transfer-messenger RNA: a 426-nucleotide RNA sequence from Spiroplasma sp. NBRC 100390. Rfam classes the family as a non-coding RNA gene. NCBI's taxonomy places the organism under Bacteria, Mycoplasmatota, Entomoplasmatales, Spiroplasmataceae, Spiroplasma. The family's consensus secondary structure is taken from published work. Rfam's curators write: Bacterial tmRNA, also known as 10Sa RNA or SsrA, is named for its dual tRNA and mRNA-like properties. Its role is to liberate the mRNA from a stalled ribosome.
[Rfam]
RNA sequence: GGGGAUGUUCUGGUUUCGACAGGAAUGAUCUACUAGUAUCGGCAGUAGUUUGGCAGACUAUAAUGCUUCUAGGUUUGAAGAAACGCAAACAAAAAACAAAACGAAGACAAAGUUGAAAUUCCAGCAUUCAUGAUGAACAAUCAAUUUGCUGGUUCAAUGUUAGCAGCUUAAUUCCUCGUUGUUAGAGGAUAGCUAGCCGUAAUAAUAGUUAAUUGUAGGUUAUUAACCAUUAUCGUAUCUCAAUACUUAAUCUAAUUGAAAUUCUAAAUGAUAAUGUUAGAAUUUUGAAAACGACUUAUUAUCUAGUUAUUUAAUUAGUUGUCUAGUCCUACUAUUAAAUAAUGAAAUAAAGAUGAUUAGACUAAACUGUAGAAGAUAUUAGAAAGUUAUUUGUGGACGCGGGUUCAAUUCCCGCCAUCUCCACCA
Numbered sequence: 001g002g003g004g005a006u007g008u009u010c011u012g013g014u015u016u017c018g019a020c021a022g023g024a025a026u027g028a029u030c031u032a033c034u035a036g037u038a039u040c041g042g043c044a045g046u047a048g049u050u051u052g053g054c055a056g057a058c059u060a061u062a063a064u065g066c067u068u069c070u071a072g073g074u075u076u077g078a079a080g081a082a083a084c085g086c087a088a089a090c091a092a093a094a095a096a097c098a099a100a101a102c103g104a105a106g107a108c109a110a111a112g113u114u115g116a117a118a119u120u121c122c123a124g125c126a127u128u129c130a131u132g133a134u135g136a137a138c139a140a141u142c143a144a145u146u147u148g149c150u151g152g153u154u155c156a157a158u159g160u161u162a163g164c165a166g167c168u169u170a171a172u173u174c175c176u177c178g179u180u181g182u183u184a185g186a187g188g189a190u191a192g193c194u195a196g197c198c199g200u201a202a203u204a205a206u207a208g209u210u211a212a213u214u215g216u217a218g219g220u221u222a223u224u225a226a227c228c229a230u231u232a233u234c235g236u237a238u239c240u241c242a243a244u245a246c247u248u249a250a251u252c253u254a255a256u257u258g259a260a261a262u263u264c265u266a267a268a269u270g271a272u273a274a275u276g277u278u279a280g281a282a283u284u285u286u287g288a289a290a291a292c293g294a295c296u297u298a299u300u301a302u303c304u305a306g307u308u309a310u311u312u313a314a315u316u317a318g319u320u321g322u323c324u325a326g327u328c329c330u331a332c333u334a335u336u337a338a339a340u341a342a343u344g345a346a347a348u349a350a351a352g353a354u355g356a357u358u359a360g361a362c363u364a365a366a367c368u369g370u371a372g373a374a375g376a377u378a379u380u381a382g383a384a385a386g387u388u389a390u391u392u393g394u395g396g397a398c399g400c401g402g403g404u405u406c407a408a409u410u411c412c413c414g415c416c417a418u419c420u421c422c423a424c425c426a
Stems, first nucleotide, its partner, number of pairs: 001422007020395002023392007031384001033382008043369004050072004055067001160185008203232004208227004216260001219257001221255001263288002266285004274304001276302002306343010316331003321362004327355001399415005